[Rfam]
RNA sequence: GAAGAAUAGAAGCUGAAUCUGGUUUUUCCAGAACGGGGGAUCUCGUACUGGGGUGUAUCGUGCCGUUAGGUGCGUAGGGCUACACCUGUGCCCAAACCCGUCAACUAACCUCGUAAGCUCAAAAGGUGGCAAAU
Numbered sequence: 001g002a003a004g005a006a007u008a009g010a011a012g013c014u015g016a017a018u019c020u021g022g023u024u025u026u027u028c029c030a031g032a033a034c035g036g037g038g039g040a041u042c043u044c045g046u047a048c049u050g051g052g053g054u055g056u057a058u059c060g061u062g063c064c065g066u067u068a069g070g071u072g073c074g075u076a077g078g079g080c081u082a083c084a085c086c087u088g089u090g091c092c093c094a095a096a097c098c099c100g101u102c103a104a105c106u107a108a109c110c111u112c113g114u115a116a117g118c119u120c121a122a123a124a125g126g127u128g129g130c131a132a133a134u
Stems, first nucleotide, its partner, number of pairs: 011119004018032003033114006043050001051099003059074004077093004
Notes:
This 134-nucleotide RNA from Desulfitobacterium metallireducens belongs to the Rfam family "c-di-AMP riboswitch aptamer (ydaO/yuaA leader)". The pairing is the family consensus, mapped onto this sequence. This family represents a conserved RNA structure found upstream of the ydaO and yuaA genes in Bacillus subtilis and related genes in other bacteria.